[Rfam]
Nucleotides: 132
Stems, first nucleotide, its partner, number of pairs: 011026006028058003036051003039047002096118009
Number, partner (000 for none) and nucleotide at each position: 001000c002000a003000a004000a005000a006000c007000a008000a009000g010000c011026a012025g013024a014023a015022g016021c017000g018000c019000c020000c021016g022015c023014u024013u025012c026011u027000c028058a029057c030056c031000u032000g033000a034000u035000u036051g037050a038049c039047g040046c041000u042000g043000c044000a045000a046040g047039c048000u049038g050037u051036u052000g053000a054000c055000a056030g057029g058028u059000u060000a061000u062000g063000g064000u065000g066000a067000u068000u069000u070000c071000c072000u073000g074000a075000a076000u077000a078000g079000u080000g081000a082000g083000a084000a085000a086000c087000g088000a089000u090000c091000a092000u093000c094000g095000u096118g097117u098116g099115g100114g101113c102112g103111c104110a105000g106000u107000a108000u109000g110104u111103g112102u113101g114100c115099c116098u117097g118096c119000u120000u121000u122000u123000u124000u125000u126000a127000u128000a129000c130000u131000u132000u